Rfam assigns this 557-nucleotide part of an RNA from Silurus meridionalis to the family "Eukaryotic small subunit ribosomal RNA".
RNA sequence: AAAGUUGCUGCAGUUAAAAAGCUCGUAGUUGGAUCUCGGGAGUGGGCUGGCGGUCCGCCGCGAGGCGAGCCACCGCCUGUCCCAGACCCUGCCUCCCCGGUGCCCCCCGGAUGCCCUUGGCUGGGUGUCCGGUCCCUUUCAGGGGUCCGGAGCGUUUACUUUGAAAAAAUUAGAGUGUUCAAAGCGGGCCGCCAAACUCGCCUGAAUACCUGAGCUAGGAAUAAUGGAAUAGGACUCCGGUUCUAUUUUGUGGGUUUUCGGAACCAGGGCCAUGAUUAAGAGGGACGGCCGGGGCAUUCAGAUACCGCUAGAGGUGAAAUUCUUGGACCGGCGCAAGACGGACGAAAGCGAAAGCAUUUGCCAAGAAUGUUUUCAUUAAUCAAGAACGAAAGUCGGAGGUUCGAAGACGAUCAGAUACCGUCGUAGUUCCGACCGUAAACCAUGCCGACCCGCGAUCCGGCGGCGUUAUUCCCAUGACCCGCCGGGCAGCGUGCGGGAAACCACGAGUCUUUGGGUUCCGGGGGGAGUAUGGUUGCAAAGCUGAAACUUAAAGGAAU
Numbered sequence: 001a002a003a004g005u006u007g008c009u010g011c012a013g014u015u016a017a018a019a020a021g022c023u024c025g026u027a028g029u030u031g032g033a034u035c036u037c038g039g040g041a042g043u044g045g046g047c048u049g050g051c052g053g054u055c056c057g058c059c060g061c062g063a064g065g066c067g068a069g070c071c072a073c074c075g076c077c078u079g080u081c082c083c084a085g086a087c088c089c090u091g092c093c094u095c096c097c098c099g100g101u102g103c104c105c106c107c108c109g110g111a112u113g114c115c116c117u118u119g120g121c122u123g124g125g126u127g128u129c130c131g132g133u134c135c136c137u138u139u140c141a142g143g144g145g146u147c148c149g150g151a152g153c154g155u156u157u158a159c160u161u162u163g164a165a166a167a168a169a170u171u172a173g174a175g176u177g178u179u180c181a182a183a184g185c186g187g188g189c190c191g192c193c194a195a196a197c198u199c200g201c202c203u204g205a206a207u208a209c210c211u212g213a214g215c216u217a218g219g220a221a222u223a224a225u226g227g228a229a230u231a232g233g234a235c236u237c238c239g240g241u242u243c244u245a246u247u248u249u250g251u252g253g254g255u256u257u258u259c260g261g262a263a264c265c266a267g268g269g270c271c272a273u274g275a276u277u278a279a280g281a282g283g284g285a286c287g288g289c290c291g292g293g294g295c296a297u298u299c300a301g302a303u304a305c306c307g308c309u310a311g312a313g314g315u316g317a318a319a320u321u322c323u324u325g326g327a328c329c330g331g332c333g334c335a336a337g338a339c340g341g342a343c344g345a346a347a348g349c350g351a352a353a354g355c356a357u358u359u360g361c362c363a364a365g366a367a368u369g370u371u372u373u374c375a376u377u378a379a380u381c382a383a384g385a386a387c388g389a390a391a392g393u394c395g396g397a398g399g400u401u402c403g404a405a406g407a408c409g410a411u412c413a414g415a416u417a418c419c420g421u422c423g424u425a426g427u428u429c430c431g432a433c434c435g436u437a438a439a440c441c442a443u444g445c446c447g448a449c450c451c452g453c454g455a456u457c458c459g460g461c462g463g464c465g466u467u468a469u470u471c472c473c474a475u476g477a478c479c480c481g482c483c484g485g486g487c488a489g490c491g492u493g494c495g496g497g498a499a500a501c502c503a504c505g506a507g508u509c510u511u512u513g514g515g516u517u518c519c520g521g522g523g524g525g526a527g528u529a530u531g532g533u534u535g536c537a538a539a540g541c542u543g544a545a546a547c548u549u550a551a552a553g554g555a556a557u
Base pairs, nucleotide, nucleotide: 011520013518019517021387023385024384028380029379030378282374283373284372285371286369287368290365293362294361295360296359299340303336305331306330307329311322312321313320348355349354392433393432394431395430396429397428402426406422407421408420409419444516445515446514447509448508449507451491452490453489456486457485458484459483460482461481462480463479465478466477467476495502496501522549523548524547531542532541533540534539
Annotation:
The base pairs follow the family's consensus structure, which is taken from published work. Lineage of the source: Eukaryota > Craniata > Characiphysae > Siluridae > Silurus. For this family Rfam cites "Crystal structure of the ribosome at 5.5 A resolution" (Yusupov et al., Science, 2001). It scores 1650 bits against the family's covariance model.